Record summary: Shown here is a 96-nucleotide sequence from Moschus moschiferus, a member of the family "Vault RNA". The family has 73 seed sequences and 2,873 matches in Rfam 15.1. It is annotated as a non-coding RNA gene. It scores 45 bits against the family's covariance model. For this family Rfam cites "Evolution of Vault RNAs" (Stadler et al., Mol Biol Evol, 2009). This family of RNAs are found as part of the enigmatic vault ribonucleoprotein complex.
[Rfam]
RNA sequence: AUUCAGGCCAUAGCUCAGCGGUUCCUUCAACUACAAACUGAUUAAAUAACCCUCUCCAGGAUGGUUUGAGACCUGCAGGCACUCUCCAGUGUCUGG
Numbered sequence: 001a002u003u004c005a006g007g008c009c010a011u012a013g014c015u016c017a018g019c020g021g022u023u024c025c026u027u028c029a030a031c032u033a034c035a036a037a038c039u040g041a042u043u044a045a046a047u048a049a050c051c052c053u054c055u056c057c058a059g060g061a062u063g064g065u066u067u068g069a070g071a072c073c074u075g076c077a078g079g080c081a082c083u084c085u086c087c088a089g090u091g092u093c094u095g096g
Base pairs, nucleotide, nucleotide: 002091004089006087007086013080014079015078018076019075020074021073026070027069028068029067030066